Shown here is a 129-nucleotide sequence from Gordonia amarae, a member of the family "ALIL pseudoknot". The family's RNA type in Rfam is cis-regulatory element. Rfam 15.1 lists 2,146 matches to the family in 1,098 species. It scores 64 bits against the family's covariance model.

[Rfam]
RNA sequence: GGCUUUCUUUGCGGCGGAGAUCGACCGCCCACAGCGUUGAUCGUGGAGUUCGUCGCCGCUUUCCGCGGCGAACACGGAGUCGAUCCGAUCUGCGCGGCCUUACAGGAGACAGCCGCCCAGAUCGCUCCG
Numbered sequence: 001g002g003c004u005u006u007c008u009u010u011g012c013g014g015c016g017g018a019g020a021u022c023g024a025c026c027g028c029c030c031a032c033a034g035c036g037u038u039g040a041u042c043g044u045g046g047a048g049u050u051c052g053u054c055g056c057c058g059c060u061u062u063c064c065g066c067g068g069c070g071a072a073c074a075c076g077g078a079g080u081c082g083a084u085c086c087g088a089u090c091u092g093c094g095c096g097g098c099c100u101u102a103c104a105g106g107a108g109a110c111a112g113c114c115g116c117c118c119a120g121a122u123c124g125c126u127c128c129g
Stems, first nucleotide, its partner, number of pairs: 013029005075129005086124002089121004094116005